[Rfam]
RNA: L2-Alphaproteobacteria ribosomal protein leader
RNA sequence: GGAUCCACGAGCGGGAUGGAAACAUCCCAAACGAAACGGACCUUUGGUCCAAAGCAACGGAAGACAGAGA
Numbered sequence: 001g002g003a004u005c006c007a008c009g010a011g012c013g014g015g016a017u018g019g020a021a022a023c024a025u026c027c028c029a030a031a032c033g034a035a036a037c038g039g040a041c042c043u044u045u046g047g048u049c050c051a052a053a054g055c056a057a058c059g060g061a062a063g064a065c066a067g068a069g070a
Stems, first nucleotide, its partner, number of pairs: 001027004005019003038050005